[Rfam]
RNA: Enterococcus sRNA 68 (Lacto-3 RNA)
Organism: Levilactobacillus brevis
RNA sequence: UGCGAUGAGUCGAGAAAAUCACGCGACUUUCGGGUCGUCCGCGCAAGCGGCUAGGUGAAUUUUUCAACAGGGCACAUAUGUCACCGUAUUGUGACGUGUCUGAUCUUGAGGGAAUGUGGAUUCC
Numbered sequence: 001u002g003c004g005a006u007g008a009g010u011c012g013a014g015a016a017a018a019u020c021a022c023g024c025g026a027c028u029u030u031c032g033g034g035u036c037g038u039c040c041g042c043g044c045a046a047g048c049g050g051c052u053a054g055g056u057g058a059a060u061u062u063u064u065c066a067a068c069a070g071g072g073c074a075c076a077u078a079u080g081u082c083a084c085c086g087u088a089u090u091g092u093g094a095c096g097u098g099u100c101u102g103a104u105c106u107u108g109a110g111g112g113a114a115u116g117u118g119g120a121u122u123c124c
Stems, first nucleotide, its partner, number of pairs: 019058004023038006039050004071100005080095005112123004